[Rfam]
RNA sequence: GCCGGGGGAAGCUCGCCGGUGAGGCCACGCGCGGGGUGCCCGUCACCCUCCCUCCGCCUCUGGGAAGGUCUGAGAGAAGGGCCCGGGCUGCCCCAGCAGGGCGCCGCCCGCCCGGGCGGGUGAGCCCCCAGCCAUGGGGCCCGGCCGGGGCCGCCUCGGGCAGGAGAAGCGGCCGCGCCUGCGCCGGCGCCCCGCGGAUGUCCAGCCCCGGCCCGGCUUGGGAACGACUCACGGCCGGCGGCGCGAGUGCAAUGGGCCGAGGCAGCGCUGCCCGCGGGGCUGCAACCCAAUUCAGACUACUCUCCCCCGGGC
Numbered sequence: 001g002c003c004g005g006g007g008g009a010a011g012c013u014c015g016c017c018g019g020u021g022a023g024g025c026c027a028c029g030c031g032c033g034g035g036g037u038g039c040c041c042g043u044c045a046c047c048c049u050c051c052c053u054c055c056g057c058c059u060c061u062g063g064g065a066a067g068g069u070c071u072g073a074g075a076g077a078a079g080g081g082c083c084c085g086g087g088c089u090g091c092c093c094c095a096g097c098a099g100g101g102c103g104c105c106g107c108c109c110g111c112c113c114g115g116g117c118g119g120g121u122g123a124g125c126c127c128c129c130a131g132c133c134a135u136g137g138g139g140c141c142c143g144g145c146c147g148g149g150g151c152c153g154c155c156u157c158g159g160g161c162a163g164g165a166g167a168a169g170c171g172g173c174c175g176c177g178c179c180u181g182c183g184c185c186g187g188c189g190c191c192c193c194g195c196g197g198a199u200g201u202c203c204a205g206c207c208c209c210g211g212c213c214c215g216g217c218u219u220g221g222g223a224a225c226g227a228c229u230c231a232c233g234g235c236c237g238g239c240g241g242c243g244c245g246a247g248u249g250c251a252a253u254g255g256g257c258c259g260a261g262g263c264a265g266c267g268c269u270g271c272c273c274g275c276g277g278g279g280c281u282g283c284a285a286c287c288c289a290a291u292u293c294a295g296a297c298u299a300c301u302c303u304c305c306c307c308c309g310g311g312c
Stems, first nucleotide, its partner, number of pairs: 001312003007305003012261004016256002021060004034048005070295005080236004089103005104119006120232005126226001139217003262283005268277003
A member of the RNA family "Nuclear RNase P" from Crocodylus porosus, 312 nucleotides long. The family's RNA type in Rfam is ribozyme. The match comes from Rfam's covariance-model search (134 bits). NCBI's taxonomy places the organism under Eukaryota, Craniata, Sauropsida, Longirostres, Crocodylus. Ribonuclease P (RNase P) is a ubiquitous endoribonuclease, found in archaea, bacteria and eukarya as well as chloroplasts and mitochondria.